RNA sequence: UGACUGUCACGGUCGAAAAGUGAGGAGGUUGCCUUGAGUUUGCGGACGUCGCUUCACACUCACACUUGUUUAGUCGUGCCUUGCUCGGAAUUUCGGGUCGUUCUCCUACUCGUGUGUGCAAACCACGACGCUAGGGAGCGCUAAGUAAUGGAAAUGACCCUUGAGGGAAGUAAUUCUGCAGAGACAUUUCCACCCGGAGUUGGCGGCGUGAGAUUACACACUGGCAAGAUAUGCGAAGUUUCGGACUCGAAAUGGGUGAUCAACUUUUUGCCUU
Numbered sequence: 001u002g003a004c005u006g007u008c009a010c011g012g013u014c015g016a017a018a019a020g021u022g023a024g025g026a027g028g029u030u031g032c033c034u035u036g037a038g039u040u041u042g043c044g045g046a047c048g049u050c051g052c053u054u055c056a057c058a059c060u061c062a063c064a065c066u067u068g069u070u071u072a073g074u075c076g077u078g079c080c081u082u083g084c085u086c087g088g089a090a091u092u093u094c095g096g097g098u099c100g101u102u103c104u105c106c107u108a109c110u111c112g113u114g115u116g117u118g119c120a121a122a123c124c125a126c127g128a129c130g131c132u133a134g135g136g137a138g139c140g141c142u143a144a145g146u147a148a149u150g151g152a153a154a155u156g157a158c159c160c161u162u163g164a165g166g167g168a169a170g171u172a173a174u175u176c177u178g179c180a181g182a183g184a185c186a187u188u189u190c191c192a193c194c195c196g197g198a199g200u201u202g203g204c205g206g207c208g209u210g211a212g213a214u215u216a217c218a219c220a221c222u223g224g225c226a227a228g229a230u231a232u233g234c235g236a237a238g239u240u241u242c243g244g245a246c247u248c249g250a251a252a253u254g255g256g257u258g259a260u261c262a263a264c265u266u267u268u269u270g271c272c273u274u
Base pairs, nucleotide, nucleotide: 001015002014003013004012019269020268022266023265024264027261028260029259030258031257032256033255035249036248037247038246044241045240046239047238049236050235051234052233067226068225069224071223072222073221074220076219077218078217080212081211082210083209084208085206086205087204089201090200091199092198093197094196095195096194097193099140101138102137103136105135106134107133108132110128111127112126113125114124116123117122141145149192150191151190152189153188154187155186160183161182162181167176168175169174
Shown here is a 274-nucleotide RNA sequence from Cladophialophora chaetospira, a member of the family "Fungal signal recognition particle RNA". The literature on the family includes a 2002 paper in Curr Opin Struct Biol by Wild et al., "Towards the structure of the mammalian signal recognition particle". It is annotated as a non-coding RNA gene. The base pairs follow the family's consensus structure, which is taken from published work.